[Rfam]
RNA sequence: CGCGUCGACCCGCUCAAUCGCGAGUUUCGCGAACCGGGGACCCACUGCACCACUGGGGUGAAUCCGCGAGCCUUGGCCCGCGGUAGGGCGAUCUUCCCGCCCGAAUCCGUCAGCUAACCCGGUCGGCGGUGUCGGAAGGAGUU
Numbered sequence: 001c002g003c004g005u006c007g008a009c010c011c012g013c014u015c016a017a018u019c020g021c022g023a024g025u026u027u028c029g030c031g032a033a034c035c036g037g038g039g040a041c042c043c044a045c046u047g048c049a050c051c052a053c054u055g056g057g058g059u060g061a062a063u064c065c066g067c068g069a070g071c072c073u074u075g076g077c078c079c080g081c082g083g084u085a086g087g088g089c090g091a092u093c094u095u096c097c098c099g100c101c102c103g104a105a106u107c108c109g110u111c112a113g114c115u116a117a118c119c120c121g122g123u124c125g126g127c128g129g130u131g132u133c134g135g136a137a138g139g140a141g142u143u
Base pairs, nucleotide, nucleotide: 011128012127013126014125018032019031020030033123034122035121036120037119038118043055044054056108057107058106064083065082066081067080086102087101088100089099

This 143-nucleotide RNA sequence from Micromonospora craterilacus belongs to the Rfam family "c-di-AMP riboswitch aptamer (ydaO/yuaA leader)". Lineage of the source: Bacteria > Bacillati > Actinomycetota > Actinomycetes > Micromonospora. Rfam links the family to the GO terms cyclic-di-AMP binding and regulation of gene expression. A search with the family's covariance model found it, with a score of 89 bits. The base pairs follow the family's consensus structure.